Record summary
c-di-AMP riboswitch aptamer (ydaO/yuaA leader): a 168-nucleotide RNA sequence from Streptomyces rubrolavendulae. The organism belongs to Streptomyces, within Bacteria. Its family is annotated with regulation of gene expression and cyclic-di-AMP binding in the Gene Ontology. The match comes from Rfam's covariance-model search (56 bits).
RNA sequence: CUCCGGACUCCGCCACUCACACAUUCACGCUCGGCAGGAGCGGGGGAACCAGGUAAGUCGCCGCACCCGGCAUCCGGGACGGCUAGGGGUGAAGUCGCGGGCGACCGCGGCCGGGCAGCUCCCGCCCGAACCCGACAGCUCACCUCGCAGGCGUCGGAGAGGACACGA
Numbered sequence: 001c002u003c004c005g006g007a008c009u010c011c012g013c014c015a016c017u018c019a020c021a022c023a024u025u026c027a028c029g030c031u032c033g034g035c036a037g038g039a040g041c042g043g044g045g046g047a048a049c050c051a052g053g054u055a056a057g058u059c060g061c062c063g064c065a066c067c068c069g070g071c072a073u074c075c076g077g078g079a080c081g082g083c084u085a086g087g088g089g090u091g092a093a094g095u096c097g098c099g100g101g102c103g104a105c106c107g108c109g110g111c112c113g114g115g116c117a118g119c120u121c122c123c124g125c126c127c128g129a130a131c132c133c134g135a136c137a138g139c140u141c142a143c144c145u146c147g148c149a150g151g152c153g154u155c156g157g158a159g160a161g162g163a164c165a166c167g168a
Stems, first nucleotide, its partner, number of pairs: 002039003040148006050086001087133003095110004113127004